This 76-nucleotide sequence from Myotis myotis belongs to the Rfam family "mir-9223 microRNA precursor family". It scores 69 bits against the family's covariance model.
RNA sequence: GGUGGUUCUUGUGUGAUGCACCCCAGAAUCGGGCUCCCUCCUGUCUGGUUCUGGAGUGCAUCACCGGAGAACUGAC
Numbered sequence: 001g002g003u004g005g006u007u008c009u010u011g012u013g014u015g016a017u018g019c020a021c022c023c024c025a026g027a028a029u030c031g032g033g034c035u036c037c038c039u040c041c042u043g044u045c046u047g048g049u050u051c052u053g054g055a056g057u058g059c060a061u062c063a064c065c066g067g068a069g070a071a072c073u074g075a076c
Stems, first nucleotide, its partner, number of pairs: 002076002005072006013064005019058003023054001025052009
Dot-bracket structure: .((.((((((..(((((.(((.(.(((((((((..........))))))))).).))).)))))..))))))..))
Its family is annotated with miRNA-mediated post-transcriptional gene silencing and RISC complex in the Gene Ontology.